[Rfam]
RNA sequence: GCUGACGAAACGGGAGAGUGACAGGUUCGCCUGUUCGCCGAAGGAGCAACCGCCCCGGAAUCUCUCAGGCAAAAGGACCGCUUCGGCUUU
Numbered sequence: 001g002c003u004g005a006c007g008a009a010a011c012g013g014g015a016g017a018g019u020g021a022c023a024g025g026u027u028c029g030c031c032u033g034u035u036c037g038c039c040g041a042a043g044g045a046g047c048a049a050c051c052g053c054c055c056c057g058g059a060a061u062c063u064c065u066c067a068g069g070c071a072a073a074a075g076g077a078c079c080g081c082u083u084c085g086g087c088u089u090u
Stems, first nucleotide, its partner, number of pairs: 006085004011080003020035004037070003040066002044064003050058002

The record is a 90-nucleotide RNA sequence from Sphingorhabdus profundilacus, which matches "Glycine riboswitch aptamer" in Rfam.
The pairing is the family consensus, mapped onto this sequence.
NCBI's taxonomy places the organism under Bacteria, Pseudomonadati, Sphingomonadales, Sphingorhabdaceae, Sphingorhabdus.
Rfam describes the family as follows. This family represents the bacterial glycine riboswitch.